[Rfam]
RNA: Lysine riboswitch aptamer
RNA sequence: CUUCAUGAUAGAGGCGUGCUUGACAAGAGUAUUUAAGUGGAGGCUGUAGAGGGUCGAUAAAGCUUAAAGAAAGGGGAGAGCACCGAAGAAAUAAGUAGUCUCUACUGCUUAUUUCUGGGCACAAGGUGAAUAACUUUGUGACUGUCACCGAUUGCAGGUGGAGUGCUAUCUUGUUU
Numbered sequence: 001c002u003u004c005a006u007g008a009u010a011g012a013g014g015c016g017u018g019c020u021u022g023a024c025a026a027g028a029g030u031a032u033u034u035a036a037g038u039g040g041a042g043g044c045u046g047u048a049g050a051g052g053g054u055c056g057a058u059a060a061a062g063c064u065u066a067a068a069g070a071a072a073g074g075g076g077a078g079a080g081c082a083c084c085g086a087a088g089a090a091a092u093a094a095g096u097a098g099u100c101u102c103u104a105c106u107g108c109u110u111a112u113u114u115c116u117g118g119g120c121a122c123a124a125g126g127u128g129a130a131u132a133a134c135u136u137u138g139u140g141a142c143u144g145u146c147a148c149c150g151a152u153u154g155c156a157g158g159u160g161g162a163g164u165g166c167u168a169u170c171u172u173g174u175u176u
Stems, first nucleotide, its partner, number of pairs: 007170005016083006024075001032068007087116012117143002120140008145161005
Dot-bracket structure: ......(((((....((((((..(.......(((((((.......................)))))))......)..))))))...((((((((((((......))))))))))))((.((((((((.....)))))))).)).(((((.......)))))....)))))......